[Rfam]
Burkholderia sRNA 54: a 78-nucleotide RNA sequence from Paraburkholderia phenazinium.
Nucleotides: 078
Stems, first nucleotide, its partner, number of pairs: 010044010024030002047071009057062001
Number, partner (000 for none) and nucleotide at each position: 001000a002000g003000c004000u005000c006000u007000c008000u009000c010044a011043g012042g013041u014040u015039c016038u017037g018036g019035c020000a021000c022000g023000g024030c025029c026000c027000u028000c029025g030024g031000a032000a033000u034000a035019g036018c037017c038016a039015g040014a041013a042012u043011c044010u045000u046000u047071a048070g049069c050068c051067g052066a053065c054064c055063g056000c057062g058000u059000u060000a061000a062057c063055c064054g065053g066052u067051c068050g069049g070048c071047u072000u073000u074000u075000u076000u077000u078000c
It scores 61 bits against the family's covariance model. Rfam describes the family as follows. Identified by RNA-seq, RACE and Northern blot. Strongly expressed in biofilm. The base pairs follow the family's consensus structure, which was predicted with RNAfold. It is annotated as a small RNA. The family has 4 seed sequences and 91 matches in Rfam 15.1.